[Rfam]
RNA sequence: AUAUGCCUGGCUCCCUGUAUGCCAUUUGCAGAACCCAUCGAACAUCGAUGGCCUCCGUGGAUGGCGUAUGAGGAGCAAGCAAGC
Number, nucleotide and partner (000 for none) at each position: 001a000002u000003a000004u000005g084006c083007c000008u081009g080010g076011c075012u074013c073014c072015c000016u070017g069018u068019a067020u066021g065022c064023c063024a062025u000026u000027u059028g058029c057030a000031g000032a000033a000034c000035c000036c000037a000038u000039c000040g000041a000042a000043c000044a000045u000046c000047g000048a000049u000050g000051g000052c000053c000054u000055c000056c000057g029058u028059g027060g000061a000062u024063g023064g022065c021066g020067u019068a018069u017070g016071a000072g014073g013074a012075g011076c010077a000078a000079g000080c009081a008082a000083g006084c005
RNA: mir-160 microRNA precursor family
Organism: Gossypium anomalum